[Rfam]
RNA sequence: UCUUAAUUUGAAUGUAAGUCGCUCUGGAUAAGAGUGUCUACUAAAUUACUAAAA
Numbered sequence: 001u002c003u004u005a006a007u008u009u010g011a012a013u014g015u016a017a018g019u020c021g022c023u024c025u026g027g028a029u030a031a032g033a034g035u036g037u038c039u040a041c042u043a044a045a046u047u048a049c050u051a052a053a054a
Base pairs, nucleotide, nucleotide: 013043014041015040016039020036021035022034023033024032025031
The family of this 54-nucleotide RNA sequence from Oncorhynchus kisutch is "UnaL2 LINE 3' element". Rfam 15.1 lists 493,311 matches to the family in 99 species. The organism belongs to Oncorhynchus, within Eukaryota. The match comes from Rfam's covariance-model search (57 bits). On this family, see Baba et al., RNA 2004: "Solution structure of an RNA stem-loop derived from the 3' conserved region of eel LINE UnaL2". The eel long interspersed element (LINE) UnaL2 and its partner short interspersed element (SINE) share a conserved 3' tail containing a stem-loop that is critical for their retrotransposition. Presumably, the first step of retrotransposition is the recognition of their 3' tails by UnaL2-encoded reverse transcriptase.